mir-10 microRNA precursor family: a 75-nucleotide sequence from Acipenser ruthenus. The family has 36 seed sequences and 3,853 matches in Rfam 15.1. Its family is annotated with miRNA-mediated post-transcriptional gene silencing and RISC complex in the Gene Ontology.

RNA sequence: CUAUCUGUACCCUGUAGAACCGAAUUUGUGUUAAAAAGUAACAAUCGCAAAUUCGACUCUAGGGGAAUACAUCGU
Number, nucleotide and partner (000 for none) at each position: 001c000002u000003a072004u071005c000006u069007g068008u000009a000010c065011c064012c063013u000014g000015u000016a060017g059018a058019a000020c000021c055022g054023a053024a052025u051026u050027u049028g048029u047030g046031u000032u000033a000034a000035a000036a000037a000038g000039u000040a000041a000042c000043a000044a000045u000046c030047g029048c028049a027050a026051a025052u024053u023054c022055g021056a000057c000058u018059c017060u016061a000062g000063g012064g011065g010066a000067a000068u007069a006070c000071a004072u003073c000074g000075u000